Shown here is a 101-nucleotide RNA from Corchorus capsularis, a member of the family "MIR2275 microRNA precursor family".
RNA sequence: UUUUUGAAUAUAAGAAUUGGAGGAAAUUAAACCCAAUAGCAAAAAGUAUUCAACAGCUUUCUUGUUGGGUUUAAUUUCCUCCAAUAUCUUACAUCCGGUAU
Number, nucleotide and partner (000 for none) at each position: 001u000002u000003u000004u098005u097006g096007a000008a094009u000010a000011u091012a090013a089014g088015a000016a085017u084018u083019g082020g081021a080022g000023g078024a077025a076026a075027u074028u073029a072030a071031a000032c069033c068034c067035a066036a065037u064038a063039g000040c000041a000042a000043a000044a000045a000046g000047u000048a000049u000050u000051c000052a000053a000054c000055a000056g000057c000058u000059u000060u000061c000062u000063u038064g037065u036066u035067g034068g033069g032070u000071u030072u029073a028074a027075u026076u025077u024078c023079c000080u021081c020082c019083a018084a017085u016086a000087u000088c014089u013090u012091a011092c000093a000094u008095c000096c006097g005098g004099u000100a000101u000

The source organism's lineage runs through Eukaryota, Pentapetalae, malvids, Malvaceae and Corchorus.
The match comes from Rfam's covariance-model search (62 bits).